The family of this 149-nucleotide RNA from a Solirubrobacterales bacterium is "c-di-AMP riboswitch aptamer (ydaO/yuaA leader)".
Taxonomically the source falls in Solirubrobacterales (Bacteria, Bacillati, Actinomycetota, Thermoleophilia).
This family represents a conserved RNA structure found upstream of the ydaO and yuaA genes in Bacillus subtilis and related genes in other bacteria. The ydaO/yuaA element is thought to act as a genetic 'off' switch for the ydaO and yuaA genes in its native state.
RNA sequence: GAACACAGACAGCCGAAUCUCCGGUUCGACAAGCGGGCUCGGAGAACGGGGGAACCAAUCGUUUGGGGCUAACCCACCGCCGGGUGGGGGCGCGAGCUCUUUCAGCGCCAGCCCGUCAGCUAACCCCGUAGGCAGACGAAGGAGGCGGU
Dot-bracket structure: ...........(((...(((((((..............)))))))((((((....((......))(((.....((((......))))..((((...........))))...))).........)))))).)))................